[Rfam]
RNA sequence: GCUCCCUGAGACCCUUUGAUUGCCUUGUUAUUACAAUACUGUACAUAACAUGAUCAGGCAGCCAAAGUGACUCAGGUAUGC
Numbered sequence: 001g002c003u004c005c006c007u008g009a010g011a012c013c014c015u016u017u018g019a020u021u022g023c024c025u026u027g028u029u030a031u032u033a034c035a036a037u038a039c040u041g042u043a044c045a046u047a048a049c050a051u052g053a054u055c056a057g058g059c060a061g062c063c064a065a066a067g068u069g070a071c072u073c074a075g076g077u078a079u080g081c
Base pairs, nucleotide, nucleotide: 001081002080005076006075007074008073009072010071012069014067015066016065017064018063020061021060022059023058024057025056026050027049028048029047033042034041035040
RNA: mir-125 microRNA precursor family